[Rfam]
RNA sequence: GGGGUCGACCGGAAUUGACAGGAUGGAGAUAAGUAGGUAAGCAUGCAGCGCGUUGGGUGAAUUAGCGCUUUAAUCUGAACGCUCAAACUUACAAAUGGCGAAAAUAACUACGCCUUAGCUGCUUAAUUUAGAAUUUAGCUAGCUUUUGUCCCGCCGGUUUUCCGUUUCAUCGGAUCGGCAUCAGGGGCAUCGAAAGAUGAAACUGGUUUGCUUAAGGUGUGCAUAGCGAACGAGAUAAAGCACCUAAGGAAGACGGUAUAGGUAAGCGACUGACCUUCCCCUUCCCUACAAAUAAACAGAAGCUAAGCAUGUAGAAAGCUUACCUUAUACCAUGUUUGGACGAGGGUUCGAAUCCCUCCGGCUCCACAA
Number, nucleotide and partner (000 for none) at each position: 001g365002g364003g363004g362005u361006c360007g359008a000009c000010c000011g000012g000013a000014a000015u000016u000017g000018a000019c338020a337021g336022g335023a333024u332025g331026g330027a000028g000029a000030u327031a326032a325033g323034u322035a321036g320037g319038u318039a000040a000041g000042c311043a310044u309045g308046c307047a069048g068049c067050g066051c065052g000053u000054u085055g084056g083057g082058u081059g080060a000061a000062u000063u000064a000065g051066c050067g049068c048069u047070u000071u000072a000073a000074u000075c000076u000077g000078a000079a000080c059081g058082c057083u056084c055085a054086a000087a000088c000089u000090u000091a000092c000093a000094a000095a000096u000097g000098g000099c000100g000101a000102a000103a000104a000105u000106a000107a000108c000109u000110a000111c000112g000113c000114c000115u142116u141117a140118g139119c138120u137121g136122c000123u000124u000125a000126a000127u000128u000129u000130a000131g000132a000133a000134u000135u000136u121137a120138g119139c118140u117141a116142g115143c000144u000145u000146u000147u189148g188149u187150c186151c185152c184153g179154c178155c177156g176157g175158u174159u173160u172161u000162c000163c000164g000165u200166u199167u000168c000169a000170u195171c000172g160173g159174a158175u157176c156177g155178g154179c153180a000181u000182c000183a000184g152185g151186g150187g149188c148189a147190u000191c000192g000193a000194a000195a170196g000197a000198u000199g166200a165201a000202a000203c234204u233205g000206g231207u230208u229209u228210g227211c226212u000213u000214a000215a000216g000217g000218u251219g000220u249221g000222c000223a000224u000225a000226g211227c210228g209229a208230a207231c206232g000233a204234g203235a000236u000237a000238a000239a000240g000241c000242a000243c000244c000245u000246a000247a000248g000249g220250a000251a218252g000253a000254c000255g000256g286257u000258a000259u000260a282261g000262g000263u000264a000265a000266g281267c000268g279269a000270c000271u000272g303273a000274c000275c000276u000277u296278c000279c268280c000281c266282u260283u000284c000285c000286c256287u000288a000289c000290a000291a000292a000293u000294a000295a000296a277297c000298a000299g000300a000301a000302g000303c272304u000305a000306a000307g046308c045309a044310u043311g042312u000313a000314g000315a000316a000317a000318g038319c037320u036321u035322a034323c033324c000325u032326u031327a030328u000329a000330c026331c025332a024333u023334g000335u022336u021337u020338g019339g000340a000341c000342g358343a357344g356345g355346g354347u000348u000349c000350g000351a000352a000353u000354c346355c345356c344357u343358c342359c007360g006361g005362c004363u003364c002365c001366a000367c000368a000369a000
Source information
Rfam assigns this 369-nucleotide RNA sequence from Mucilaginibacter frigoritolerans to the family "transfer-messenger RNA". The base pairs follow the family's consensus structure, which is taken from published work. By type it is a non-coding RNA gene. The organism belongs to Mucilaginibacter, within Bacteria.